RNA sequence: CUCCGAAGACCGGCGGAAACGCCGGACCGAAGAAGCAACCUGUUGUCCGGAGAGGACGCGGAGAAUCUUUCAGGUGACCAGACGGAG
Numbered sequence: 001c002u003c004c005g006a007a008g009a010c011c012g013g014c015g016g017a018a019a020c021g022c023c024g025g026a027c028c029g030a031a032g033a034a035g036c037a038a039c040c041u042g043u044u045g046u047c048c049g050g051a052g053a054g055g056a057c058g059c060g061g062a063g064a065a066u067c068u069u070u071c072a073g074g075u076g077a078c079c080a081g082a083c084g085g086a087g
Stems, first nucleotide, its partner, number of pairs: 001087005011024004026075003029071002033069003040061004
Rfam assigns this 87-nucleotide RNA from Intestinimonas butyriciproducens to the family "Glycine riboswitch aptamer".